[Rfam]
RNA sequence: GGCCGCUUGGCCUAAUGGUUAAGGCACCCGACUCCUAGUUCUAAGUGUAAUCGGGAGAUUGUGAGUUCGAAUCUCAUAGUGGUCG
Numbered sequence: 001g002g003c004c005g006c007u008u009g010g011c012c013u014a015a016u017g018g019u020u021a022a023g024g025c026a027c028c029c030g031a032c033u034c035c036u037a038g039u040u041c042u043a044a045g046u047g048u049a050a051u052c053g054g055g056a057g058a059u060u061g062u063g064a065g066u067u068c069g070a071a072u073c074u075c076a077u078a079g080u081g082g083u084c085g
Base pairs, nucleotide, nucleotide: 001084002083003082004081005080006079007078010025011024012023013022027055028054029053030052031051061077062076063075064074065073
A member of the RNA family "tRNA" from Penicillium digitatum, 85 nucleotides long. Gene Ontology term of the family: triplet codon-amino acid adaptor activity. It scores 56 bits against the family's covariance model. The organism belongs to Penicillium digitatum, within Eukaryota.